Description: A member of the RNA family "U7 small nuclear RNA" from Dissostichus mawsoni, 57 nucleotides long. Rfam 15.1 lists 10,439 matches to the family in 569 species. Animal histone pre-mRNAs are spliced by a different mechanism than nuclear pre-mRNAs and self-splicing introns. This processing involves the U7 snRNP, which contains only one RNA species: U7. The 5' end of U7 RNA is thought to base-pair to a conserved spacer element downstream of the cleavage site in histone pre-mRNA. This family contains a number of annotated U7 pseudogenes.
[Rfam]
RNA sequence: AGGAAUCAAAGCUUUUUAGAUAUUUCUCUAGCAGGUUUCUCUUAAAGAGAAGCCCCC
Numbered sequence: 001a002g003g004a005a006u007c008a009a010a011g012c013u014u015u016u017u018a019g020a021u022a023u024u025u026c027u028c029u030a031g032c033a034g035g036u037u038u039c040u041c042u043u044a045a046a047g048a049g050a051a052g053c054c055c056c057c
Base pairs, nucleotide, nucleotide: 034054035053036052037051038050039049040048041047